Bacteroidales-2 RNA: a 391-nucleotide RNA sequence.

RNA sequence: GCACGUCCCCCGUCUUUUCCAACGGGGCAGCUAACAUUCGGGCGGUUGGCGGCUGGUGAUUGUGGGCAUAAUCUUGGCAAUGCUCUUUUCUCAAGCUCCGUGCGGAUUGUUUUUACCGCAUGGCGUGUUUUAUCUCCGAGCGCACUGGGCGCAAUUAUGGCAUUAUUUUCACGCUUCCCUUUUCCAUACGACUCUCACCCUCCCAAAUUCACGGGUUUUGCGUAUGCGGACAAAAUACACGUAUUUCGACCGUUCCGACUUGCGGCAUUGGUUUGCCGUCCUGCUCGGUGUGGUUGUUUAACACCCUAUUCAAUCGCUCCAAAGCGAACAGGCGAAUUUUUGAUUGUCCAAGCCUCAAAAAUAGGUUUCCCACAAAAAAGGCUUUUUGUUU
Numbered sequence: 001g002c003a004c005g006u007c008c009c010c011c012g013u014c015u016u017u018u019c020c021a022a023c024g025g026g027g028c029a030g031c032u033a034a035c036a037u038u039c040g041g042g043c044g045g046u047u048g049g050c051g052g053c054u055g056g057u058g059a060u061u062g063u064g065g066g067c068a069u070a071a072u073c074u075u076g077g078c079a080a081u082g083c084u085c086u087u088u089u090c091u092c093a094a095g096c097u098c099c100g101u102g103c104g105g106a107u108u109g110u111u112u113u114u115a116c117c118g119c120a121u122g123g124c125g126u127g128u129u130u131u132a133u134c135u136c137c138g139a140g141c142g143c144a145c146u147g148g149g150c151g152c153a154a155u156u157a158u159g160g161c162a163u164u165a166u167u168u169u170c171a172c173g174c175u176u177c178c179c180u181u182u183u184c185c186a187u188a189c190g191a192c193u194c195u196c197a198c199c200c201u202c203c204c205a206a207a208u209u210c211a212c213g214g215g216u217u218u219u220g221c222g223u224a225u226g227c228g229g230a231c232a233a234a235a236u237a238c239a240c241g242u243a244u245u246u247c248g249a250c251c252g253u254u255c256c257g258a259c260u261u262g263c264g265g266c267a268u269u270g271g272u273u274u275g276c277c278g279u280c281c282u283g284c285u286c287g288g289u290g291u292g293g294u295u296g297u298u299u300a301a302c303a304c305c306c307u308a309u310u311c312a313a314u315c316g317c318u319c320c321a322a323a324g325c326g327a328a329c330a331g332g333c334g335a336a337u338u339u340u341u342g343a344u345u346g347u348c349c350a351a352g353c354c355u356c357a358a359a360a361a362u363a364g365g366u367u368u369c370c371c372a373c374a375a376a377a378a379a380g381g382c383u384u385u386u387u388g389u390u391u
Stems, first nucleotide, its partner, number of pairs: 008027006052096002054093003102119004123174004140152004185226006197216004203271004227252003231248001233246005262279006280332004287305005314327005350384005364371002
Pairs were carried over by alignment from the consensus structure, which is taken from published work.
It is annotated as a small RNA.